Overview
The family of this 63-nucleotide RNA is "RAGATH-18 RNA".
[Rfam]
RNA sequence: CCUUGGGAGAGUUAUAUCAAACUGAAGUAGCUUUUAGCAAAACAGGACUCUGUGAAUAAGGAA
Dot-bracket structure: (((((...(((((........(((.....(((...)))....))))))))......)))))..
Numbered sequence: 001c002c003u004u005g006g007g008a009g010a011g012u013u014a015u016a017u018c019a020a021a022c023u024g025a026a027g028u029a030g031c032u033u034u035u036a037g038c039a040a041a042a043c044a045g046g047a048c049u050c051u052g053u054g055a056a057u058a059a060g061g062a063a
Stems, first nucleotide, its partner, number of pairs: 001061005009050005022045003030038003
Rfam describes the family as follows. Actinobacteria, Firmicutes, Fusobacteria, Thermotogae (1 example).